[Rfam]
The record is a 600-nucleotide part of an RNA from Pedobacter sp. PACM 27299, which matches "Bacterial large subunit ribosomal RNA" in Rfam. A search with the family's covariance model found it, with a score of 2720 bits. Lineage of the source: Bacteria > Pseudomonadati > Sphingobacteriia > Sphingobacteriales > Pedobacter.

RNA sequence: UGGUCCCGGUGAAGACGCCGGGUACCCGCAACGGGACGGAAAGACCCCAUGCACCUUCACUACAAUUUAACAUUGACAUUGGAUACAAGAUGUGUAGGAUAGGUGGGAGACUGUGAAGCGGCAUCGCUAGGUGUUGUGGAGUCAACGUUGAAAUACCACCCUUUUUGUAUUCGGUGUCUAACCCCUUUCGGGGGGACAUUGUUUGAUGGGUAGUUUGACUGGGGUGGUCGCCUCCAAAAAGGUAACGGAGGCUUUCAAAGGUAAGCUCAAUACGCUUGGUAACCGUAUGAGGAGUGCAAUAGCAUAAGCUUGCUUGACUGUGAGGCAGACAAGCCGAGCAGGGUCGAAAGACGGAUAUAGUGAUCCGGUGGUUCUGCAUGGAAGGGCCAUCGCUCAAAGGAUAAAAGGUACGCUGGGGAUAACAGGCUGAUCUCCCCCAAGAGCUCAUAUCGACGGGGAGGUUUGGCACCUCGAUGUCGGCUCGUCACAUCCUGGGGCUGGAGAAGGUCCCAAGGGUUCGGCUGUUCGCCGAUUAAAGUGGCACGCGAGCUGGGUUCAGAACGUCGCGAGACAGUUCGGUCCCUAUCUGUUGUGGGCGUA
Numbered sequence: 001u002g003g004u005c006c007c008g009g010u011g012a013a014g015a016c017g018c019c020g021g022g023u024a025c026c027c028g029c030a031a032c033g034g035g036a037c038g039g040a041a042a043g044a045c046c047c048c049a050u051g052c053a054c055c056u057u058c059a060c061u062a063c064a065a066u067u068u069a070a071c072a073u074u075g076a077c078a079u080u081g082g083a084u085a086c087a088a089g090a091u092g093u094g095u096a097g098g099a100u101a102g103g104u105g106g107g108a109g110a111c112u113g114u115g116a117a118g119c120g121g122c123a124u125c126g127c128u129a130g131g132u133g134u135u136g137u138g139g140a141g142u143c144a145a146c147g148u149u150g151a152a153a154u155a156c157c158a159c160c161c162u163u164u165u166u167g168u169a170u171u172c173g174g175u176g177u178c179u180a181a182c183c184c185c186u187u188u189c190g191g192g193g194g195g196a197c198a199u200u201g202u203u204u205g206a207u208g209g210g211u212a213g214u215u216u217g218a219c220u221g222g223g224g225u226g227g228u229c230g231c232c233u234c235c236a237a238a239a240a241g242g243u244a245a246c247g248g249a250g251g252c253u254u255u256c257a258a259a260g261g262u263a264a265g266c267u268c269a270a271u272a273c274g275c276u277u278g279g280u281a282a283c284c285g286u287a288u289g290a291g292g293a294g295u296g297c298a299a300u301a302g303c304a305u306a307a308g309c310u311u312g313c314u315u316g317a318c319u320g321u322g323a324g325g326c327a328g329a330c331a332a333g334c335c336g337a338g339c340a341g342g343g344u345c346g347a348a349a350g351a352c353g354g355a356u357a358u359a360g361u362g363a364u365c366c367g368g369u370g371g372u373u374c375u376g377c378a379u380g381g382a383a384g385g386g387c388c389a390u391c392g393c394u395c396a397a398a399g400g401a402u403a404a405a406a407g408g409u410a411c412g413c414u415g416g417g418g419a420u421a422a423c424a425g426g427c428u429g430a431u432c433u434c435c436c437c438c439a440a441g442a443g444c445u446c447a448u449a450u451c452g453a454c455g456g457g458g459a460g461g462u463u464u465g466g467c468a469c470c471u472c473g474a475u476g477u478c479g480g481c482u483c484g485u486c487a488c489a490u491c492c493u494g495g496g497g498c499u500g501g502a503g504a505a506g507g508u509c510c511c512a513a514g515g516g517u518u519c520g521g522c523u524g525u526u527c528g529c530c531g532a533u534u535a536a537a538g539u540g541g542c543a544c545g546c547g548a549g550c551u552g553g554g555u556u557c558a559g560a561a562c563g564u565c566g567c568g569a570g571a572c573a574g575u576u577c578g579g580u581c582c583c584u585a586u587c588u589g590u591u592g593u594g595g596g597c598g599u600a
Stems, first nucleotide, its partner, number of pairs: 005022005025596008034588003038583002046417004051413002053409005059214004066206002069203004075178016092161001102160005109143003118137008182194003217229004230252006253398001255355002261313006267293002270288005294303002318341004324335003343352003366392007374385002426467003430464001431461007441451002478553001479551004483545001484542005491516002494511006518532005559577004563572003